[Rfam]
RNA sequence: GUGAAACGUGAUGAAAAUUUUGCAGUGUCUGAAACGUGAUGCUUUCAAAGGAACCACUGAUUCAC
Numbered sequence: 001g002u003g004a005a006a007c008g009u010g011a012u013g014a015a016a017a018u019u020u021u022g023c024a025g026u027g028u029c030u031g032a033a034a035c036g037u038g039a040u041g042c043u044u045u046c047a048a049a050g051g052a053a054c055c056a057c058u059g060a061u062u063c064a065c
Base pairs, nucleotide, nucleotide: 001065002064003063004062005061
A member of the RNA family "Small nucleolar RNA SNORD42" from Conger conger, 65 nucleotides long.
The base pairs follow the family's consensus structure, which was predicted with PFOLD.
For this family Rfam cites "Purified box C/D snoRNPs are able to reproduce site-specific 2'-O-methylation of target RNA in vitro" (Galardi et al., Mol Cell Biol, 2002).
snoRNA U42 is found in intron 3 of the ribosomal protein L23a (RPL23a) gene in humans and is also present in mice.